[Rfam]
RNA sequence: AGAGUCAAGGAGACUAUCGCUGGAGACUUCGGUCUCGGGAGGAAAGUCCGGGCACCAUAUGGCAGCUUAGCGGGUAAUGCCCGUCCACCGUGAGGUGAGGACAAGUGCAACAGAAAGGAAGUACAGGGGUUUGAGUUAGAUUGGGGUAGCGUAAGCCGGCCAAUCAGCGAGAGAUUUAUCUCACCUGCUGUAGUGAAAACAGGUAAACUCUAGGCGGUGCAAGUUCAAAUAGGUUCACGUUAUGGGGGCGGCCAGCUUCUGUGAACGGGUCGAGCGCUUGAGCCUAUUGGUAACAAUAGGCCUAGACGAAUGGUAGUCGAAUACAGGACCCGGCUUAUACCUUGGCUCUUUUU
Numbered sequence: 001a002g003a004g005u006c007a008a009g010g011a012g013a014c015u016a017u018c019g020c021u022g023g024a025g026a027c028u029u030c031g032g033u034c035u036c037g038g039g040a041g042g043a044a045a046g047u048c049c050g051g052g053c054a055c056c057a058u059a060u061g062g063c064a065g066c067u068u069a070g071c072g073g074g075u076a077a078u079g080c081c082c083g084u085c086c087a088c089c090g091u092g093a094g095g096u097g098a099g100g101a102c103a104a105g106u107g108c109a110a111c112a113g114a115a116a117g118g119a120a121g122u123a124c125a126g127g128g129g130u131u132u133g134a135g136u137u138a139g140a141u142u143g144g145g146g147u148a149g150c151g152u153a154a155g156c157c158g159g160c161c162a163a164u165c166a167g168c169g170a171g172a173g174a175u176u177u178a179u180c181u182c183a184c185c186u187g188c189u190g191u192a193g194u195g196a197a198a199a200c201a202g203g204u205a206a207a208c209u210c211u212a213g214g215c216g217g218u219g220c221a222a223g224u225u226c227a228a229a230u231a232g233g234u235u236c237a238c239g240u241u242a243u244g245g246g247g248g249c250g251g252c253c254a255g256c257u258u259c260u261g262u263g264a265a266c267g268g269g270u271c272g273a274g275c276g277c278u279u280g281a282g283c284c285u286a287u288u289g290g291u292a293a294c295a296a297u298a299g300g301c302c303u304a305g306a307c308g309a310a311u312g313g314u315a316g317u318c319g320a321a322u323a324c325a326g327g328a329c330c331c332g333g334c335u336u337a338u339a340c341c342u343u344g345g346c347u348c349u350u351u352u353u
Stems, first nucleotide, its partner, number of pairs: 001349010011338001012318007020039002023036005044336003048333005053219004060254004065215005070084005085099001086097004100210002105208002107204002122192005128186002223275004233266006245259005282301008
A member of the RNA family "Bacterial RNase P class A" from Bacteriovorax sp. Seq25_V, 353 nucleotides long. By type it is a ribozyme. The base pairs follow the family's consensus structure, which is taken from published work.